[Rfam]
RNA sequence: UUCUUAUCUAGAGAAACGGAGGGAUUGGCCCUAUGAAGUUUCAGCAACCAGUAUGUUUCAUUUGCAUACAUGGUGCUAAGUCCAACAGGUAUAUUUACCUGAAAGAUAAGGC
Number, nucleotide and partner (000 for none) at each position: 001u000002u111003c110004u109005u108006a107007u106008c105009u000010a000011g000012a000013g042014a041015a040016a039017c038018g000019g000020a000021g031022g030023g029024a000025u085026u084027g083028g082029c023030c022031c021032u000033a000034u000035g000036a000037a000038g017039u016040u015041u014042c013043a077044g076045c075046a074047a000048c073049c072050a000051g069052u068053a067054u066055g065056u064057u000058u000059c000060a000061u000062u000063u000064g056065c055066a054067u053068a052069c051070a000071u000072g049073g048074u046075g045076c044077u043078a000079a000080g000081u104082c028083c027084a026085a025086c101087a100088g099089g098090u097091a096092u000093a000094u000095u000096u091097a090098c089099c088100u087101g086102a000103a000104a081105g008106a007107u006108a005109a004110g003111g002112c000
This 112-nucleotide sequence from Clostridium acidisoli belongs to the Rfam family "SAM riboswitch aptamer (S box leader)".
Taxonomically the source falls in Clostridium acidisoli (Bacteria, Bacillati, Bacillota, Clostridium).
Gene Ontology term of the family: regulation of gene expression.